[Rfam]
RNA sequence: GUGAUGGCAGCGGGUUUUUACCGUUUCUCCGCUUUGAGCCAGCCGAAGCAGAACGGUGUCAGGCAGGCUACAUCAC
Numbered sequence: 001g002u003g004a005u006g007g008c009a010g011c012g013g014g015u016u017u018u019u020a021c022c023g024u025u026u027c028u029c030c031g032c033u034u035u036g037a038g039c040c041a042g043c044c045g046a047a048g049c050a051g052a053a054c055g056g057u058g059u060c061a062g063g064c065a066g067g068c069u070a071c072a073u074c075a076c
Stems, first nucleotide, its partner, number of pairs: 001076006009033004037069004042064003
RNA: CyVA-1 RNA